[Rfam]
RNA sequence: CACCCAAGCCUUAGGGAGUAUCUACAAUCUUAAGUAUUUCCAACAUGAAGAAAAACUUACUAGUGUAGAUAUUCACUAAGGCUUUAGUG
Numbered sequence: 001c002a003c004c005c006a007a008g009c010c011u012u013a014g015g016g017a018g019u020a021u022c023u024a025c026a027a028u029c030u031u032a033a034g035u036a037u038u039u040c041c042a043a044c045a046u047g048a049a050g051a052a053a054a055a056c057u058u059a060c061u062a063g064u065g066u067a068g069a070u071a072u073u074c075a076c077u078a079a080g081g082c083u084u085u086a087g088u089g
Stems, first nucleotide, its partner, number of pairs: 006084009016074002019071008031059005037053004
A member of the RNA family "MIR5200 microRNA precursor family" from Triticum aestivum, 89 nucleotides long. The family's consensus secondary structure was predicted with RNAalifold. Rfam 15.1 lists 52 matches to the family in 8 species.